Background:
The family of this 141-nucleotide RNA from Propithecus coquereli is "U4 spliceosomal RNA". U4 small nuclear RNA (U4 snRNA) is a component of the major U2-dependent spliceosome. It is annotated as a spliceosomal small nuclear RNA. The source organism's lineage runs through Eukaryota, Metazoa, Craniata, Boreoeutheria and Propithecus. For this family Rfam cites "Structure of a pre-catalytic spliceosome" (Plaschka et al., Nature, 2017). Gene Ontology terms of the family: U4 snRNP and spliceosomal tri-snRNP complex assembly.

[Rfam]
RNA sequence: ACCUUUGUGCAGUGGCAGUAUCAUAGUCAAUGAGGUUUAACCGAGGCGCAAUUAUUGCUAAUUGAAAGUUUUUCCCAAUACCCUGCCAUGACGAUUUGCAAUAUAGUCGGCACUGGCAAUUUUUGAUGGUCCCUAUGGGGA
Numbered sequence: 001a002c003c004u005u006u007g008u009g010c011a012g013u014g015g016c017a018g019u020a021u022c023a024u025a026g027u028c029a030a031u032g033a034g035g036u037u038u039a040a041c042c043g044a045g046g047c048g049c050a051a052u053u054a055u056u057g058c059u060a061a062u063u064g065a066a067a068g069u070u071u072u073u074c075c076c077a078a079u080a081c082c083c084u085g086c087c088a089u090g091a092c093g094a095u096u097u098g099c100a101a102u103a104u105a106g107u108c109g110g111c112a113c114u115g116g117c118a119a120u121u122u123u124u125g126a127u128g129g130u131c132c133c134u135a136u137g138g139g140g141a
Stems, first nucleotide, its partner, number of pairs: 020052002024048001026047003034042003085117003089112002092109005130141004
Dot-bracket structure: ...................((..(.(((.....(((...)))..))))..))................................(((.((.(((((........))))).))..)))............((((....))))